RNA sequence: GCAGGCCGCGUGGGAGAGUCCGGUCCUCGCCUUGAGACGAUCACAGGGUGGGAGAUCGGCGCCGAAGGAGCAACCGCCCCCGGAAACUCUCAGGCACCCAGGACCGCGUGGCUUUC
Numbered sequence: 001g002c003a004g005g006c007c008g009c010g011u012g013g014g015a016g017a018g019u020c021c022g023g024u025c026c027u028c029g030c031c032u033u034g035a036g037a038c039g040a041u042c043a044c045a046g047g048g049u050g051g052g053a054g055a056u057c058g059g060c061g062c063c064g065a066a067g068g069a070g071c072a073a074c075c076g077c078c079c080c081c082g083g084a085a086a087c088u089c090u091c092a093g094g095c096a097c098c099c100a101g102g103a104c105c106g107c108g109u110g111g112c113u114u115u116c
Stems, first nucleotide, its partner, number of pairs: 006111008020059006061095003064091002068089003074082001
A member of the RNA family "Glycine riboswitch aptamer" from Roseospira visakhapatnamensis, 116 nucleotides long.